[Rfam]
RNA sequence: AGGAAUUCUCAGGGCGGGGUGAAAUUCCCCACCGGCGGUAACUGACCGUCACAGGCCACUCAAAUCAAGCCUGUGCCGACAGAAGCCCGCGAGCGCUUUAUCAUGAUCACACUCUGUGUGGAUAAAGGUCAGCAGAUCUGGUGAAACUGUGUUCUCUACUGAAUACAGCGAGUCCAGAGCCGACGGUUAUAGUCCGGAUGGAAGAGAAUCAGC
Numbered sequence: 001a002g003g004a005a006u007u008c009u010c011a012g013g014g015c016g017g018g019g020u021g022a023a024a025u026u027c028c029c030c031a032c033c034g035g036c037g038g039u040a041a042c043u044g045a046c047c048g049u050c051a052c053a054g055g056c057c058a059c060u061c062a063a064a065u066c067a068a069g070c071c072u073g074u075g076c077c078g079a080c081a082g083a084a085g086c087c088c089g090c091g092a093g094c095g096c097u098u099u100a101u102c103a104u105g106a107u108c109a110c111a112c113u114c115u116g117u118g119u120g121g122a123u124a125a126a127g128g129u130c131a132g133c134a135g136a137u138c139u140g141g142u143g144a145a146a147c148u149g150u151g152u153u154c155u156c157u158a159c160u161g162a163a164u165a166c167a168g169c170g171a172g173u174c175c176a177g178a179g180c181c182g183a184c185g186g187u188u189a190u191a192g193u194c195c196g197g198a199u200g201g202a203a204g205a206g207a208a209u210c211a212g213c
Stems, first nucleotide, its partner, number of pairs: 005209006017029003031193002033182002035090004093133002137178005184196003
RNA: FMN riboswitch aptamer (RFN element)